[Rfam]
RNA sequence: CAUUUCCUUUGGCUUCUUUACAGUGCUGCCUUGUUGCAUAUGGAUCAAGCAGCAUUGUACAGGGCUAUGAAGGAUCUG
Numbered sequence: 001c002a003u004u005u006c007c008u009u010u011g012g013c014u015u016c017u018u019u020a021c022a023g024u025g026c027u028g029c030c031u032u033g034u035u036g037c038a039u040a041u042g043g044a045u046c047a048a049g050c051a052g053c054a055u056u057g058u059a060c061a062g063g064g065c066u067a068u069g070a071a072g073g074a075u076c077u078g
Base pairs, nucleotide, nucleotide: 014064015063016062017061019059020058021057022056023055024054025053026052027051028050030049031048032047033046

The record is a 78-nucleotide RNA from Xenopus tropicalis, which matches "mir-103/107 microRNA precursor family" in Rfam. The source organism's lineage runs through Eukaryota, Batrachia, Pipoidea, Pipidae and Silurana. From the family's description: This family consists of the mammalian microRNA (miRNA) precursors mir-103 and mir107. The base pairs follow the family's consensus structure, which was predicted with RNAalifold. Rfam's curators put it in the seed alignment.